Rfam assigns this 102-nucleotide RNA sequence from Brevibacillus brevis to the family "SAM riboswitch aptamer (S box leader)". NCBI's taxonomy places the organism under Bacteria, Bacillati, Caryophanales, Paenibacillaceae, Brevibacillus brevis. A search with the family's covariance model found it, with a score of 96 bits.
RNA sequence: CUCUUAUCCAGAGAGGCAGAGGGACUGGCCUGAUGAAGCCUCGGCAACCGGUAAAAAUCCGGUGCCAAUUCCAGCAAAGCUACGUGCUUUGAAAGAUAAGAG
Numbered sequence: 001c002u003c004u005u006a007u008c009c010a011g012a013g014a015g016g017c018a019g020a021g022g023g024a025c026u027g028g029c030c031u032g033a034u035g036a037a038g039c040c041u042c043g044g045c046a047a048c049c050g051g052u053a054a055a056a057a058u059c060c061g062g063u064g065c066c067a068a069u070u071c072c073a074g075c076a077a078a079g080c081u082a083c084g085u086g087c088u089u090u091g092a093a094a095g096a097u098a099a100g101a102g
Base pairs, nucleotide, nucleotide: 001102002101003100004099005098006097007096008095013042014041015040016039017038021031022030023029025074026073027072028071043066044065045064046063048062049061070094075091076090077089078088079087080086